[Rfam]
RNA sequence: GAUUCCCAAUUUUGUCUACCUCCACGCGGUGGGAAUCGGGCAACGUUCACUGAUGAACGGCAAAGAGACAAUA
Numbered sequence: 001g002a003u004u005c006c007c008a009a010u011u012u013u014g015u016c017u018a019c020c021u022c023c024a025c026g027c028g029g030u031g032g033g034a035a036u037c038g039g040g041c042a043a044c045g046u047u048c049a050c051u052g053a054u055g056a057a058c059g060g061c062a063a064a065g066a067g068a069c070a071a072u073a
Base pairs, nucleotide, nucleotide: 001037002036003035004034005033006032007031018030019029020028044059045058046057047056048055
Dot-bracket structure: (((((((..........(((.......))))))))))......(((((......)))))..............